A member of the RNA family "Small nucleolar RNA SNORA33" from Jaculus jaculus, 131 nucleotides long. Rfam links the family to the GO terms RNA processing and nucleolus. The family has 28 seed sequences and 1,176 matches in Rfam 15.1. From the family's description: ACA33 is a member of the H/ACA class of snoRNA that guide the sites of modification of uridines to pseudouridines. A search with the family's covariance model found it, with a score of 81 bits. The base pairs follow the family's consensus structure, which was predicted with PFOLD.

RNA sequence: UAGCCAGCCAAUUAAUCUACUUACCUGAAUGUGUUUCUGCAGAAAUUUAGAAAUAGCUGCCAAUGCUCAUGCCAUUCCGUGAGCCUAGAGGCCAAAUGGGGUCAUUACAGUCUCCCAAAAUGGCUACAAAA
Numbered sequence: 001u002a003g004c005c006a007g008c009c010a011a012u013u014a015a016u017c018u019a020c021u022u023a024c025c026u027g028a029a030u031g032u033g034u035u036u037c038u039g040c041a042g043a044a045a046u047u048u049a050g051a052a053a054u055a056g057c058u059g060c061c062a063a064u065g066c067u068c069a070u071g072c073c074a075u076u077c078c079g080u081g082a083g084c085c086u087a088g089a090g091g092c093c094a095a096a097u098g099g100g101g102u103c104a105u106u107a108c109a110g111u112c113u114c115c116c117a118a119a120a121u122g123g124c125u126a127c128a129a130a131a
Stems, first nucleotide, its partner, number of pairs: 003061001005059003016043003020039001071124004083111002088106002091103001093101001
Dot-bracket structure: ..(.(((........(((.(..................).))).............))).).........((((........((...((.(.(.......).).))...)).........)))).......